[Rfam]
msiK RNA: a 60-nucleotide RNA sequence. The sequence is in the family's curated seed alignment. The family's consensus secondary structure is taken from published work.

RNA sequence: GCUGGCGCCUUUAUCCAACGGAUCGUCGGGCUCGUACCUGCCCGGUUAAGGGAGUUACUU
Number, nucleotide and partner (000 for none) at each position: 001g000002c000003u000004g000005g000006c000007g000008c000009c051010u050011u049012u048013a047014u000015c045016c000017a000018a000019c000020g000021g000022a000023u000024c000025g000026u000027c044028g043029g042030g041031c040032u000033c000034g000035u000036a000037c000038c000039u000040g031041c030042c029043c028044g027045g015046u000047u013048a012049a011050g010051g009052g000053a000054g000055u000056u000057a000058c000059u000060u000